Rfam assigns this 354-nucleotide RNA from Muntiacus reevesi to the family "7SK RNA". The organism belongs to Muntiacus, within Eukaryota. On this family, see Blencowe, Curr Biol 2002: "Transcription: surprising role for an elusive small nuclear RNA". About the family: 7SK was discovered as an abundant small nuclear RNA in the mid-70s but a possible function has only recently been suggested. Two independent studies have found that 7SK RNA binds the CDK9/cyclin T complex (known as elongation factor P-TEFb). P-TEFb activates transcription by phosphorylating the C-terminal domain of RNA polymerase II. This process is negatively regulated by the 7SK RNP. The secondary structure of 7SK RNA shown here was proposed by Wasserman and Steitz on the basis of chemical modification and enzymatic cleavage experiments. This family contains a number of annotated pseudogenes and 7SK derived repeats. The threshold is artificially high to minimise the pseudogene count.
RNA sequence: GGAUGUGAGGGCGAUCUGGUUGCGACAUCUGUCACCCCAUUGAUCGCCAGGGUUGAUUCGGUUGAUCUGGCUGGCUAGGCGGGUGUCCCCUUCCUCCCUCACCGCUCCAUGUGCGUCCCUCCCGAAGCUGCGCGCUCGGUCGAAGAGGACGACCAUCCCCGAUAGAGGAGGACCGGUCUUCGGUCAGGGGUAUACGAGUAGCUGCGCUCCCCUGCUAGAACCUCCAAACAAGCUCUCAAGGUCCAAAGAUGGGAAGAGAAGAGCGCCCCAUCGUGCGGGGGCGGGAGGGGGUGGGGAGAGAGAGAGAAGAGCUACAUACACAUGGGAGAGAGGUCAAUAUGGUUUCUUACACUU
Numbered sequence: 001g002g003a004u005g006u007g008a009g010g011g012c013g014a015u016c017u018g019g020u021u022g023c024g025a026c027a028u029c030u031g032u033c034a035c036c037c038c039a040u041u042g043a044u045c046g047c048c049a050g051g052g053u054u055g056a057u058u059c060g061g062u063u064g065a066u067c068u069g070g071c072u073g074g075c076u077a078g079g080c081g082g083g084u085g086u087c088c089c090c091u092u093c094c095u096c097c098c099u100c101a102c103c104g105c106u107c108c109a110u111g112u113g114c115g116u117c118c119c120u121c122c123c124g125a126a127g128c129u130g131c132g133c134g135c136u137c138g139g140u141c142g143a144a145g146a147g148g149a150c151g152a153c154c155a156u157c158c159c160c161g162a163u164a165g166a167g168g169a170g171g172a173c174c175g176g177u178c179u180u181c182g183g184u185c186a187g188g189g190g191u192a193u194a195c196g197a198g199u200a201g202c203u204g205c206g207c208u209c210c211c212c213u214g215c216u217a218g219a220a221c222c223u224c225c226a227a228a229c230a231a232g233c234u235c236u237c238a239a240g241g242u243c244c245a246a247a248g249a250u251g252g253g254a255a256g257a258g259a260a261g262a263g264c265g266c267c268c269c270a271u272c273g274u275g276c277g278g279g280g281g282c283g284g285g286a287g288g289g290g291g292u293g294g295g296g297a298g299a300g301a302g303a304g305a306g307a308a309g310a311g312c313u314a315c316a317u318a319c320a321c322a323u324g325g326g327a328g329a330g331a332g333g334u335c336a337a338u339a340u341g342g343u344u345u346c347u348u349a350c351a352c353u354u
Stems, first nucleotide, its partner, number of pairs: 001108003005102007013093002018090002024087010035074002037070003042067004046062003116171002118168004122139004127135002140162003147158003202302002207298002210296006222287004232282006330354003333350002336345001